About this RNA:
Plastid-psbA-3 3UTR RNA: a 56-nucleotide sequence from Ancistrocladus tectorius. Clan: Plastid-psbA 3UTR RNA clan. It is annotated as a cis-regulatory element. The literature on the family includes a 2023 paper in Plant Commun by Richter et al., "Retrograde signaling in plants: A critical review focusing on the GUN pathway and beyond". Rfam's curators write: Plastid psbA-3 is a non-coding RNA (ncRNA) present in plastids. It was identified in inverted repeat sequences in the 3 prime untranslate region (3UTR) of photosystem II quinone-binding protein (psbA).

[Rfam]
RNA sequence: AAAGGAGCAAUACCAAUUUCUUGUUUUAUCAAGAGGAUUGGUAUUGCUUCUUUAUC
Numbered sequence: 001a002a003a004g005g006a007g008c009a010a011u012a013c014c015a016a017u018u019u020c021u022u023g024u025u026u027u028a029u030c031a032a033g034a035g036g037a038u039u040g041g042u043a044u045u046g047c048u049u050c051u052u053u054a055u056c
Stems, first nucleotide, its partner, number of pairs: 001053014018035006